This 181-nucleotide RNA sequence from Lentibacillus kapialis belongs to the Rfam family "Lysine riboswitch aptamer". On this family, see Sudarsan et al., Genes Dev 2003: "An mRNA structure in bacteria that controls gene expression by binding lysine". Rfam links the family to the GO term lysine biosynthetic process.
RNA sequence: GAAGUAGGUAGAGGAGCGAACAUCAUCAGUACGCAAUGAAAGGAUUAUGGGGAUCCGCUGAUCGUUGUGGAAAGGGUUAUUCGCCGAAACUUAAGAGAAACUCAUAUUCUCGAAGUUGGUUCUGCUAUUGAAUAAAUACGGGACUGUCAUAUAGGGGACUAUAUGGAGGGCUAUCUUGCGC
Numbered sequence: 001g002a003a004g005u006a007g008g009u010a011g012a013g014g015a016g017c018g019a020a021c022a023u024c025a026u027c028a029g030u031a032c033g034c035a036a037u038g039a040a041a042g043g044a045u046u047a048u049g050g051g052g053a054u055c056c057g058c059u060g061a062u063c064g065u066u067g068u069g070g071a072a073a074g075g076g077u078u079a080u081u082c083g084c085c086g087a088a089a090c091u092u093a094a095g096a097g098a099a100a101c102u103c104a105u106a107u108u109c110u111c112g113a114a115g116u117u118g119g120u121u122c123u124g125c126u127a128u129u130g131a132a133u134a135a136a137u138a139c140g141g142g143a144c145u146g147u148c149a150u151a152u153a154g155g156g157g158a159c160u161a162u163a164u165g166g167a168g169g170g171c172u173a174u175c176u177u178g179c180g181c
Base pairs, nucleotide, nucleotide: 006176007175008174009173010172011171016084017083018082019081020080022078024076032069033068034067035066036065037064038063039062088117089116090115091114092113095111096110097109098108099107118145119144120143121142122141123140124139126138127137128136129135147166148165149164150163151162152161153160
Taxonomically the source falls in Lentibacillus (Bacteria, Bacillota, Bacilli, Bacillaceae).